RNA sequence: UCACGUACCUGGUUGUAGCCGAGCCAAAUUGUGUUUAGUGUAUCAAUUGGUCCCCUUCAACCAGCUACGAAAA
Numbered sequence: 001u002c003a004c005g006u007a008c009c010u011g012g013u014u015g016u017a018g019c020c021g022a023g024c025c026a027a028a029u030u031g032u033g034u035u036u037a038g039u040g041u042a043u044c045a046a047u048u049g050g051u052c053c054c055c056u057u058c059a060a061c062c063a064g065c066u067a068c069g070a071a072a073a
Stems, first nucleotide, its partner, number of pairs: 004069002007066001009064007017056001021052002024050004029045001
RNA: mir-133 microRNA precursor family